RNA sequence: AUCCGUGGAUAUCGGGUGCGCACCGCUCCUCCUCCGGCUGUUCUCCUUCGCAGCUGUUGGUGUGCACCGCACAGGCGGUAUCCUCGCUUCGUGUGCAAAAGAGCUCGCU
Numbered sequence: 001a002u003c004c005g006u007g008g009a010u011a012u013c014g015g016g017u018g019c020g021c022a023c024c025g026c027u028c029c030u031c032c033u034c035c036g037g038c039u040g041u042u043c044u045c046c047u048u049c050g051c052a053g054c055u056g057u058u059g060g061u062g063u064g065c066a067c068c069g070c071a072c073a074g075g076c077g078g079u080a081u082c083c084u085c086g087c088u089u090c091g092u093g094u095g096c097a098a099a100a101g102a103g104c105u106c107g108c109u
Stems, first nucleotide, its partner, number of pairs: 007083007015068006022061003035056007069094004073089004

Description: The family of this 109-nucleotide sequence is "IMPDH RNA". It is one of the family's seed sequences.